[Rfam]
RNA: Enterococcus sRNA 68 (Lacto-3 RNA)
RNA sequence: UGCGAUGAGUCGAGUAAGUCUCGAUAGGCAACUAUUCUGCGAAAGCAGCUAGGAGACCCAAAGAUACAGGAUGCCACGAUUAUUAAUUUAAUCACUUACCGUAUUGUAAGGGUGUUUUCGCCCGCUGUGUUGUGGAGCAC
Numbered sequence: 001u002g003c004g005a006u007g008a009g010u011c012g013a014g015u016a017a018g019u020c021u022c023g024a025u026a027g028g029c030a031a032c033u034a035u036u037c038u039g040c041g042a043a044a045g046c047a048g049c050u051a052g053g054a055g056a057c058c059c060a061a062a063g064a065u066a067c068a069g070g071a072u073g074c075c076a077c078g079a080u081u082a083u084u085a086a087u088u089u090a091a092u093c094a095c096u097u098a099c100c101g102u103a104u105u106g107u108a109a110g111g112g113u114g115u116u117u118u119c120g121c122c123c124g125c126u127g128u129g130u131u132g133u134g135g136a137g138c139a140c
Stems, first nucleotide, its partner, number of pairs: 018057005023036005037048004071115005095110005128139004